The record is a 78-nucleotide sequence from Elaeis guineensis, which matches "Small nucleolar RNA SNORD18" in Rfam. Its Rfam clan is "SNORD18 clan". It is annotated as a C/D-box small nucleolar RNA. Pairs were carried over by alignment from the consensus structure, which was predicted with PFOLD. The literature on the family includes a 2001 paper in EMBO J by Giorgi et al., "Release of U18 snoRNA from its host intron requires interaction of Nop1p with the Rnt1p endonuclease".
[Rfam]
RNA sequence: GGGAGAUGAUGAAGAAGAUAUAUUGGUCCGUGUUUCUGAUUUACCGUGACUGAUACUUCAGUACGAAUCUCUGAUCCC
Numbered sequence: 001g002g003g004a005g006a007u008g009a010u011g012a013a014g015a016a017g018a019u020a021u022a023u024u025g026g027u028c029c030g031u032g033u034u035u036c037u038g039a040u041u042u043a044c045c046g047u048g049a050c051u052g053a054u055a056c057u058u059c060a061g062u063a064c065g066a067a068u069c070u071c072u073g074a075u076c077c078c
Stems, first nucleotide, its partner, number of pairs: 001078004

Overview:
The match comes from Rfam's covariance-model search (44 bits).